Shown here is a 91-nucleotide RNA from Rousettus aegyptiacus, a member of the family "Small nucleolar RNA SNORD116".
The base pairs follow the family's consensus structure, which was predicted with PFOLD.
Rfam classes the family as a C/D-box small nucleolar RNA.
Taxonomically the source falls in Rousettus (Eukaryota, Opisthokonta, Bilateria, Pteropodoidea).
A reference for the family is Cavaille et al. (2000), "Identification of brain-specific and imprinted small nucleolar RNA genes exhibiting an unusual genomic organization", Proc Natl Acad Sci U S A.
The match comes from Rfam's covariance-model search (84 bits).
Rfam 15.1 lists 3,260 matches to the family in 170 species.

[Rfam]
Nucleotides: 091
Stems, first nucleotide, its partner, number of pairs: 001091005024054005030046003
Number, partner (000 for none) and nucleotide at each position: 001091g002090g003089a004088u005087c006000g007000a008000u009000g010000a011000u012000g013000a014000c015000u016000c017000u018000c019000a020000c021000g022000u023000g024054c025053a026052u027051u028050c029000c030046u031045u032044g033000g034000a035000a036000a037000a038000u039000c040000u041000g042000a043000a044032c045031a046030a047000a048000a049000u050028g051027a052026g053025u054024g055000a056000g057000a058000a059000c060000c061000c062000c063000u064000c065000u066000c067000g068000u069000c070000g071000u072000u073000c074000u075000c076000a077000u078000c079000a080000g081000a082000u083000c084000u085000g086000a087005g088004g089003u090002c091001u